[Rfam]
Nucleotides: 101
Stems, first nucleotide, its partner, number of pairs: 018087008029048003033044003058076006
Number, partner (000 for none) and nucleotide at each position: 001000a002000a003000c004000a005000a006000c007000c008000g009000a010000a011000u012000a013000g014000g015000a016000u017000c018087u019086u020085u021084u022083c023082g024081u025080a026000u027000a028000a029048u030047c031046c032000c033044g034043g035042g036000a037000a038000u039000a040000g041000g042035c043034c044033c045000a046031g047030g048029a049000g050000u051000c052000u053000c054000u055000a056000c057000g058076a059075g060074g061073u062072c063071a064000c065000c066000g067000c068000a069000a070000a071063u072062g073061a074060u075059c076058u077000g078000u079000c080025u081024a082023c083022g084021a085020a086019a087018a088000g089000u090000g091000a092000a093000a094000g095000c096000g097000u098000c099000a100000u101000g